[Rfam]
RNA sequence: GCUGGGUGAGUUGCGAUCGCCUGUAACCCAUGCGGGGGUGAGAUUUGUGUGAAUUGGGUGUCGUGUCGCGGCCUGACCGGUGAUCAGCUGUCCAUCCCAAGGUGCCACUAAGGUCGGGUGGGAAGGCGGAAGUCAUCACAUCCGAUCAUCUGAAGGCGCGGGUACUGGCCAAGGCUGGGAACAGAGCAGGCAAUACCGCACGAUGGGACCAGUGAGGGUGGAGAGCGGCUGAGAGGUCGGUAGCCAACACAACAACAACGAGAUGCAAAACACACAGAUCGCUU
Dot-bracket structure: (((((((((.(...).))))))....(((....))))))(.((((((((((..(((..(((.((((.((.((.(((((.....((((((((((.((.((.(((.(((.((.(((((((((.((.(((....))).)).))))))))).)((...)).((((....(.(((....(((....)))....))).)..))))..).))).)))..)).))..))...))))))))..))))))).))..)))).)))...........)))..)))))))))).)..

Rfam assigns this 284-nucleotide sequence from Perkinsus marinus to the family "Metazoan signal recognition particle RNA". About the family: The signal recognition particle (SRP) is a universally conserved ribonucleoprotein. The literature on the family includes a 2003 paper in Nucleic Acids Res by Rosenblad et al., "SRPDB: Signal Recognition Particle Database". Gene Ontology terms of the family: signal recognition particle, endoplasmic reticulum targeting and SRP-dependent cotranslational protein targeting to membrane, signal sequence recognition.